[Rfam]
RNA: DUF3800-I RNA
RNA sequence: UAAUAUUACCGGAGGUACUUACUCCUCGACAGGUCAAUAGCUGGCGAAUGGUUAAUAAUACUAAGCGUAUGAUAAGUACGUCUUCCCAGUUAGGAAAGUCUGAUAGAAAUAUCAGACUUUUUUAUUUAGGU
Dot-bracket structure: .......(((.(((..........)))....)))...((((((....(.(((.......))...((((((.....))))))).)..)))))).((((((((((((....))))))))))))..........